[Rfam]
RNA: mir-344 microRNA precursor family
Organism: Mus musculus
RNA sequence: UUAUCAGUCAGGCUGCUGGCUAUCCAUGUCUUGUCUAGUCCUGCAUAUAGCCAAAGCCAGACUGAAUG
Numbered sequence: 001u002u003a004u005c006a007g008u009c010a011g012g013c014u015g016c017u018g019g020c021u022a023u024c025c026a027u028g029u030c031u032u033g034u035c036u037a038g039u040c041c042u043g044c045a046u047a048u049a050g051c052c053a054a055a056g057c058c059a060g061a062c063u064g065a066a067u068g
Stems, first nucleotide, its partner, number of pairs: 007062003011058004017053007024038001026036001028034001